[Rfam]
RNA sequence: UUUCAAAAAGAGAGUCGUCAGUAACAUCAAAGUUUAUAGAAAACGAGUUCCAGAGUCUAUAAAGGUGAACCCACUGGGGACGAUCCGGAGAGAAGAGAAAAGUUUGUGUCAAAAGGAACUGUCUGAGGAAU
Numbered sequence: 001u002u003u004c005a006a007a008a009a010g011a012g013a014g015u016c017g018u019c020a021g022u023a024a025c026a027u028c029a030a031a032g033u034u035u036a037u038a039g040a041a042a043a044c045g046a047g048u049u050c051c052a053g054a055g056u057c058u059a060u061a062a063a064g065g066u067g068a069a070c071c072c073a074c075u076g077g078g079g080a081c082g083a084u085c086c087g088g089a090g091a092g093a094a095g096a097g098a099a100a101a102g103u104u105u106g107u108g109u110c111a112a113a114a115g116g117a118a119c120u121g122u123c124u125g126a127g128g129a130a131u
Stems, first nucleotide, its partner, number of pairs: 001130004
RNA: Small nucleolar RNA SNORD22